[Rfam]
RNA sequence: CCAGGCGUUCCGUCGCCUGUAGCCUACCGGAGCAUGCGGGACUGGCAACGGUCCCGUGUGAAGCCUUCGGGACAAUGUAGCCCGGAGUAAUCCGUGCGGAAUCCGCGAGGAGGAAGCACGUCUGCGAGUGUCACCGCGGACAGGGCG
Number, nucleotide and partner (000 for none) at each position: 001c000002c019003a018004g017005g016006c015007g014008u000009u000010c000011c000012g000013u000014c007015g006016c005017c004018u003019g002020u000021a000022g000023c000024c000025u000026a000027c000028c069029g068030g067031a066032g065033c060034a059035u058036g057037c056038g055039g054040g053041a052042c051043u050044g049045g000046c000047a000048a000049c044050g043051g042052u041053c040054c039055c038056g037057u036058g035059u034060g033061a000062a000063g000064c000065c032066u031067u030068c029069g028070g000071g000072a000073c000074a000075a000076u000077g000078u000079a000080g000081c000082c000083c000084g093085g092086a091087g000088u000089a000090a000091u086092c085093c084094g119095u118096g117097c116098g000099g000100a000101a000102u000103c110104c109105g000106c000107g000108a000109g104110g103111a000112g000113g000114a000115a000116g097117c096118a095119c094120g000121u140122c139123u138124g137125c136126g135127a000128g000129u000130g000131u000132c000133a000134c000135c126136g125137c124138g123139g122140a121141c000142a000143g000144g000145g000146c000147g000
The family of this 147-nucleotide sequence from Burkholderia singularis is "Group II catalytic intron D1-D4-7".
Group II introns are found in rRNA, tRNA and mRNA of organelles in fungi, plants and protists, and also in mRNA in bacteria.